The family of this 169-nucleotide RNA from Panicum virgatum is "small nucleolar RNA snoR143". On this family, see Chen and Wu, Nucleic Acids Res 2009: "Mining small RNA sequencing data: a new approach to identify small nucleolar RNAs in Arabidopsis". By type it is an H/ACA-box small nucleolar RNA. A search with the family's covariance model found it, with a score of 94 bits.
[Rfam]
RNA sequence: UUGCACCUGUAUUUGUUGUGUCCUGCCUUCUUUUAUGAUAGUGGGAAGUUAUGCUGGUGCACAGAGGAAAUGCUUCUCUUGUAGUAGCGGCGGCCAGACAACCAUUGAGAGAUAGAUCCACAGAUGAACAUUCUUUCUGCUGUUUGUCUACUAAUUCUAUCUCACAUUC
Numbered sequence: 001u002u003g004c005a006c007c008u009g010u011a012u013u014u015g016u017u018g019u020g021u022c023c024u025g026c027c028u029u030c031u032u033u034u035a036u037g038a039u040a041g042u043g044g045g046a047a048g049u050u051a052u053g054c055u056g057g058u059g060c061a062c063a064g065a066g067g068a069a070a071u072g073c074u075u076c077u078c079u080u081g082u083a084g085u086a087g088c089g090g091c092g093g094c095c096a097g098a099c100a101a102c103c104a105u106u107g108a109g110a111g112a113u114a115g116a117u118c119c120a121c122a123g124a125u126g127a128a129c130a131u132u133c134u135u136u137c138u139g140c141u142g143u144u145u146g147u148c149u150a151c152u153a154a155u156u157c158u159a160u161c162u163c164a165c166a167u168u169c
Base pairs, nucleotide, nucleotide: 002061003060004059005058006057008053009052010051012048013047014046016044017043018042019040020039021038022037024035025034109163110162111161112160113159114158115157116156127145128144